[Rfam]
Shown here is a 101-nucleotide RNA sequence from Treponema maltophilum, a member of the family "TD-2 RNA". NCBI's taxonomy places the organism under Bacteria, Spirochaetota, Treponematales, Treponema, Treponema maltophilum. The family's consensus secondary structure is taken from published work. Its Rfam clan is "TD (Treponema denticola) motifs".
RNA sequence: AGCGGCGGGAUGCCCCUACGGGAAAACGUAUGUCGAGUAUUUUGUAUAAGCAAAAUACUCGAUGCGCAAGAAUGUACAAGGACGCACAUUCUUGCGCGGGU
Numbered sequence: 001a002g003c004g005g006c007g008g009g010a011u012g013c014c015c016c017u018a019c020g021g022g023a024a025a026a027c028g029u030a031u032g033u034c035g036a037g038u039a040u041u042u043u044g045u046a047u048a049a050g051c052a053a054a055a056u057a058c059u060c061g062a063u064g065c066g067c068a069a070g071a072a073u074g075u076a077c078a079a080g081g082a083c084g085c086a087c088a089u090u091c092u093u094g095c096g097c098g099g100g101u
Stems, first nucleotide, its partner, number of pairs: 001017002004014003034061011064097012077084001